Shown here is a 118-nucleotide RNA sequence from Leptolyngbya sp. FACHB-321, a member of the family "Guanidine-I riboswitch aptamer". The source organism's lineage runs through Bacteria, Bacillati, Cyanobacteriota, Cyanophyceae and Leptolyngbya. The base pairs follow the family's consensus structure. A search with the family's covariance model found it, with a score of 76 bits.
[Rfam]
RNA sequence: ACUAUUCGCUUCUAGGGUUCCGGUCUUGCGCGAGUGAGAUGACUGGUCCGAGAGAAGCAACCGCGUAGACCUGCAAGCAGGUAAAGCGGUCACACGGCGGGAAAAAAGCCCGGGAGAG
Numbered sequence: 001a002c003u004a005u006u007c008g009c010u011u012c013u014a015g016g017g018u019u020c021c022g023g024u025c026u027u028g029c030g031c032g033a034g035u036g037a038g039a040u041g042a043c044u045g046g047u048c049c050g051a052g053a054g055a056a057g058c059a060a061c062c063g064c065g066u067a068g069a070c071c072u073g074c075a076a077g078c079a080g081g082u083a084a085a086g087c088g089g090u091c092a093c094a095c096g097g098c099g100g101g102a103a104a105a106a107a108g109c110c111c112g113g114g115a116g117a118g
Base pairs, nucleotide, nucleotide: 008058009057010056011055012054015049016048020046021045022043023040024039025038026037027036028035060090061089062088063087064086066084093113095116099111100110101109